Notes: This 62-nucleotide RNA sequence belongs to the Rfam family "RAGATH-18 RNA". By type it is a small RNA. Rfam's curators write: Actinobacteria, Firmicutes, Fusobacteria, Thermotogae (1 example).
RNA sequence: UCUGUGGAGUGUUAUAUCAAACUGAAGUAGCCUUGGCAAAACAGGACACGAUGAAGCAGAAA
Numbered sequence: 001u002c003u004g005u006g007g008a009g010u011g012u013u014a015u016a017u018c019a020a021a022c023u024g025a026a027g028u029a030g031c032c033u034u035g036g037c038a039a040a041a042c043a044g045g046a047c048a049c050g051a052u053g054a055a056g057c058a059g060a061a062a
Stems, first nucleotide, its partner, number of pairs: 001060005009049005022044003030037002